transfer-messenger RNA: a 404-nucleotide RNA from Chlorobaculum tepidum. The base pairs follow the family's consensus structure, which is taken from published work. Rfam's curators write: Bacterial tmRNA, also known as 10Sa RNA or SsrA, is named for its dual tRNA and mRNA-like properties. The organism belongs to Chlorobaculum tepidum, within Bacteria.
[Rfam]
RNA sequence: GGGGAUGACAGGCUAUCGACAGGAUAGGUGUGAGAUGUCGUUGCACUCCGAGUUUCAGCAUGGACGGACUCGUUAAACAAGUCUAUGUACCAAUAGAUGCAGACGAUUAUUCGUAUGCAAUGGCUGCCUGAUUAGCACAAGUUAAUUCAGAAGCCAUCGUCCUGCGGUGAAUGCGCUUACUCUGAAGCCGCCGGAUGGCAUAACCCGCGCUUGAGCCUACGGGUUCGCGCAAGUAAGCUCCGUACAUUCAUGCCCGAGGGGGUGUGCGGGUAACCAAUCGGGAUAAGGGGACGAACGCUGCUGGCGGUGUAAUCGGACCACGAAAAACCAACCACCAGAGAUGAGUGUGGUAACUGCAUCGAGCAGUGUCCUGGACGCGGGUUCAAGUCCCGCCAUCUCCACCA
Numbered sequence: 001g002g003g004g005a006u007g008a009c010a011g012g013c014u015a016u017c018g019a020c021a022g023g024a025u026a027g028g029u030g031u032g033a034g035a036u037g038u039c040g041u042u043g044c045a046c047u048c049c050g051a052g053u054u055u056c057a058g059c060a061u062g063g064a065c066g067g068a069c070u071c072g073u074u075a076a077a078c079a080a081g082u083c084u085a086u087g088u089a090c091c092a093a094u095a096g097a098u099g100c101a102g103a104c105g106a107u108u109a110u111u112c113g114u115a116u117g118c119a120a121u122g123g124c125u126g127c128c129u130g131a132u133u134a135g136c137a138c139a140a141g142u143u144a145a146u147u148c149a150g151a152a153g154c155c156a157u158c159g160u161c162c163u164g165c166g167g168u169g170a171a172u173g174c175g176c177u178u179a180c181u182c183u184g185a186a187g188c189c190g191c192c193g194g195a196u197g198g199c200a201u202a203a204c205c206c207g208c209g210c211u212u213g214a215g216c217c218u219a220c221g222g223g224u225u226c227g228c229g230c231a232a233g234u235a236a237g238c239u240c241c242g243u244a245c246a247u248u249c250a251u252g253c254c255c256g257a258g259g260g261g262g263u264g265u266g267c268g269g270g271u272a273a274c275c276a277a278u279c280g281g282g283a284u285a286a287g288g289g290g291a292c293g294a295a296c297g298c299u300g301c302u303g304g305c306g307g308u309g310u311a312a313u314c315g316g317a318c319c320a321c322g323a324a325a326a327a328c329c330a331a332c333c334a335c336c337a338g339a340g341a342u343g344a345g346u347g348u349g350g351u352a353a354c355u356g357c358a359u360c361g362a363g364c365a366g367u368g369u370c371c372u373g374g375a376c377g378c379g380g381g382u383u384c385a386a387g388u389c390c391c392g393c394c395a396u397c398u399c400c401a402c403c404a
Stems, first nucleotide, its partner, number of pairs: 001400007020373007031363001034360005040354004044347005049072005059087007123154003128150004158197004164191004175238007239270006253282005287321001289319002297310002301338003306333003377393005
Dot-bracket structure: (((((((............(((((((....(..(((((.((((((((([[[[[.....(((((((..]]]]]........)))))))...................................(((..((((...............)))).)))...[[[[..[[[[.......(((((((......]]]]..]]]]..................................)))))))((((((........[[[[[.......)))))).......]]]]]....[.[[......[[..(((..(((]].......]].].........)))..)))....)))))...)))).)))))..)...)))))))...(((((.......))))))))))))....